[Rfam]
RNA sequence: UGGCUGUCAUGGUCAUAAACUUAAGAAGGCCCACUCCUACAACUUUGCAUCUGCCCUCUCCUCGCCCCUUGUGGUGAGCUUGGACAUGCGUGCCUCAUCCGAAGUUGGGGGUCGUCCAUCGUACUCGUCCGGGCAACCGACGAAUGCUACGGGGCGUUGAGCAAUGGAGAUGAUACUUGAGGGAAGCAAUUCUGCAGAGGCAUCUCCACCCUGAGCUGGCGGUGUGAGAUUACACCGGUCCGAGAUGUGGGUAGUUCGAGUUGGUUUGGUGGUGUCAACUUUUU
Numbered sequence: 001u002g003g004c005u006g007u008c009a010u011g012g013u014c015a016u017a018a019a020c021u022u023a024a025g026a027a028g029g030c031c032c033a034c035u036c037c038u039a040c041a042a043c044u045u046u047g048c049a050u051c052u053g054c055c056c057u058c059u060c061c062u063c064g065c066c067c068c069u070u071g072u073g074g075u076g077a078g079c080u081u082g083g084a085c086a087u088g089c090g091u092g093c094c095u096c097a098u099c100c101g102a103a104g105u106u107g108g109g110g111g112u113c114g115u116c117c118a119u120c121g122u123a124c125u126c127g128u129c130c131g132g133g134c135a136a137c138c139g140a141c142g143a144a145u146g147c148u149a150c151g152g153g154g155c156g157u158u159g160a161g162c163a164a165u166g167g168a169g170a171u172g173a174u175a176c177u178u179g180a181g182g183g184a185a186g187c188a189a190u191u192c193u194g195c196a197g198a199g200g201c202a203u204c205u206c207c208a209c210c211c212u213g214a215g216c217u218g219g220c221g222g223u224g225u226g227a228g229a230u231u232a233c234a235c236c237g238g239u240c241c242g243a244g245a246u247g248u249g250g251g252u253a254g255u256u257c258g259a260g261u262u263g264g265u266u267u268g269g270u271g272g273u274g275u276c277a278a279c280u281u282u283u284u
Stems, first nucleotide, its partner, number of pairs: 001015004023284006031274001034271001036269002039265002041262003045259003051254006058247001061078006081242001084239002087237002090235003094228005099222003103217004108212004113156001116154002120151004125143005131138002157161001165208007176199003183192003